[Rfam]
RNA sequence: AACGGCAUCCGCACGGAAUCCGUUUUCUCUCUCCUUGGACGGAUUCCAGCUCAAGACGCGGAUCUCCUCCCCAAGAUCCGCGUUUGCCGGCCCCGGAGGCGCCCCCCUUCGCCUCCGGGGCUUUUUU
Numbered sequence: 001a002a003c004g005g006c007a008u009c010c011g012c013a014c015g016g017a018a019u020c021c022g023u024u025u026u027c028u029c030u031c032u033c034c035u036u037g038g039a040c041g042g043a044u045u046c047c048a049g050c051u052c053a054a055g056a057c058g059c060g061g062a063u064c065u066c067c068u069c070c071c072c073a074a075g076a077u078c079c080g081c082g083u084u085u086g087c088c089g090g091c092c093c094c095g096g097a098g099g100c101g102c103c104c105c106c107c108u109u110c111g112c113c114u115c116c117g118g119g120g121c122u123u124u125u126u127u
Base pairs, nucleotide, nucleotide: 005012006011015047016046017045018044019043020042021041022040023039024038025037054085055084056083057082058081059080060079061078062077063076064075065074089122090121091120092119093118094117095116096115098113099112100111101110
RNA: Xanthomonadaceae sRNA sX13